[Rfam]
RNA sequence: UACUUAUCCAGAAAGACCGAGGGAAAGGCCCUAUGACGUCUUAGCAACCUAUACUGUUUGAAAAAAUAGUGAAAGGUGCUAAUUCCUGCUUCUGCAAACUUGCAGAAGGAAGAUAAGAG
Numbered sequence: 001u002a003c004u005u006a007u008c009c010a011g012a013a014a015g016a017c018c019g020a021g022g023g024a025a026a027g028g029c030c031c032u033a034u035g036a037c038g039u040c041u042u043a044g045c046a047a048c049c050u051a052u053a054c055u056g057u058u059u060g061a062a063a064a065a066a067u068a069g070u071g072a073a074a075g076g077u078g079c080u081a082a083u084u085c086c087u088g089c090u091u092c093u094g095c096a097a098a099c100u101u102g103c104a105g106a107a108g109g110a111a112g113a114u115a116a117g118a119g
Stems, first nucleotide, its partner, number of pairs: 001119001003117006013042005021031003026087003043080004048076002052071006084111001089108006
RNA: SAM riboswitch aptamer (S box leader)